[Rfam]
RNA sequence: ACCGGCACGGACGCCGGCAAAGCCGUAGGUUUCCGAGUUUGCGAAGCAAACUCGAGUUGGGAAUUGCACACGGAAGUGCAAUUCCCAUACCGGC
Numbered sequence: 001a002c003c004g005g006c007a008c009g010g011a012c013g014c015c016g017g018c019a020a021a022g023c024c025g026u027a028g029g030u031u032u033c034c035g036a037g038u039u040u041g042c043g044a045a046g047c048a049a050a051c052u053c054g055a056g057u058u059g060g061g062a063a064u065u066g067c068a069c070a071c072g073g074a075a076g077u078g079c080a081a082u083u084c085c086c087a088u089a090c091c092g093g094c
Stems, first nucleotide, its partner, number of pairs: 002017005034054009056090002058087012
A member of the RNA family "TD-2 RNA" from Treponema maltophilum, 94 nucleotides long. The family's consensus secondary structure is taken from published work. A search with the family's covariance model found it, with a score of 53 bits. Rfam classes the family as a small RNA. The literature on the family includes a 2007 paper in Nucleic Acids Res by Weinberg et al., "Identification of 22 candidate structured RNAs in bacteria using the CMfinder comparative genomics pipeline".